[Rfam]
RNA sequence: GUCGGGAGGGCGACUAAUACAAUACCCGUAAGGGAAAUAAGUCCGCGGUUCUUUAGGCCGUUCUGAACCUCCUGACACCACUAU
Numbered sequence: 001g002u003c004g005g006g007a008g009g010g011c012g013a014c015u016a017a018u019a020c021a022a023u024a025c026c027c028g029u030a031a032g033g034g035a036a037a038u039a040a041g042u043c044c045g046c047g048g049u050u051c052u053u054u055a056g057g058c059c060g061u062u063c064u065g066a067a068c069c070u071c072c073u074g075a076c077a078c079c080a081c082u083a084u
Stems, first nucleotide, its partner, number of pairs: 001076009012043003015039002025034003045061005
Overview:
The record is an 84-nucleotide sequence from Salmonella enterica, which matches "sRNA-Xcc1" in Rfam. It is annotated as a small RNA. Pairs were carried over by alignment from the consensus structure, which was predicted with RNAalifold.